Shown here is a 167-nucleotide sequence from Oryza meridionalis, a member of the family "MIR812 microRNA precursor family". The family has 22 seed sequences and 57,451 matches in Rfam 15.1. NCBI's taxonomy places the organism under Eukaryota, Tracheophyta, Spermatophyta, Petrosaviidae, Oryza.
[Rfam]
RNA sequence: UUCAACGUUUGACCACUCGUCUUAUUCAAAAUUUUUUAAAAUUAUUAAUUAUUUUAUUUGUGACUUACUUUAUUAUCUAUAGUACUUUAAGCACAACUUUUCGUUUUUUAUAUUUGCAGAAAAAAUUUGAAUAACACGAGUGGUCAAACGUUGCAAGCAAAAACUGA
Numbered sequence: 001u002u003c004a005a006c007g008u009u010u011g012a013c014c015a016c017u018c019g020u021c022u023u024a025u026u027c028a029a030a031a032u033u034u035u036u037u038a039a040a041a042u043u044a045u046u047a048a049u050u051a052u053u054u055u056a057u058u059u060g061u062g063a064c065u066u067a068c069u070u071u072a073u074u075a076u077c078u079a080u081a082g083u084a085c086u087u088u089a090a091g092c093a094c095a096a097c098u099u100u101u102c103g104u105u106u107u108u109u110a111u112a113u114u115u116g117c118a119g120a121a122a123a124a125a126u127u128u129g130a131a132u133a134a135c136a137c138g139a140g141u142g143g144u145c146a147a148a149c150g151u152u153g154c155a156a157g158c159a160a161a162a163a164c165u166g167a
Stems, first nucleotide, its partner, number of pairs: 001155001003153004008148013022134004